[Rfam]
Shown here is a 65-nucleotide RNA from Rubidibacter lacunae, a member of the family "Glutamine riboswitch aptamer (glnA leader)". It scores 53 bits against the family's covariance model. The literature on the family includes a 2011 paper in RNA Biol by Ames and Breaker, "Bacterial aptamers that selectively bind glutamine".

Nucleotides: 065
Stems, first nucleotide, its partner, number of pairs: 003061005009031005034062001040052005
Number, partner (000 for none) and nucleotide at each position: 001000a002000u003061c004060g005059u006058u007057c008000a009031u010030c011029u012028c013027c014000c015000c016000a017000g018000c019000g020000c021000c022000a023000c024000u025000g026000a027013g028012g029011g030010g031009a032000c033000g034062g035000a036000a037000g038000u039000a040052a041051g042050g043049g044048u045000u046000u047000u048044g049043c050042c051041c052040u053000g054000a055000a056000g057007g058006a059005a060004c061003g062034c063000g064000c065000c